Source information
This 77-nucleotide sequence from Phocoena sinus belongs to the Rfam family "Z6 small nucleolar RNA". Rfam classes the family as a C/D-box small nucleolar RNA. It scores 44 bits against the family's covariance model. The family has 7 seed sequences and 212 matches in Rfam 15.1.

[Rfam]
RNA sequence: UGCUGACCUGCCCCUUCCUCCCUCUCUGCUCAGGGCUCCCGGGAACCAGGAGAGACGCUGCCCCGGAAGCUGAAGCA
Numbered sequence: 001u002g003c004u005g006a007c008c009u010g011c012c013c014c015u016u017c018c019u020c021c022c023u024c025u026c027u028g029c030u031c032a033g034g035g036c037u038c039c040c041g042g043g044a045a046c047c048a049g050g051a052g053a054g055a056c057g058c059u060g061c062c063c064c065g066g067a068a069g070c071u072g073a074a075g076c077a
Base pairs, nucleotide, nucleotide: 001077002076003075004074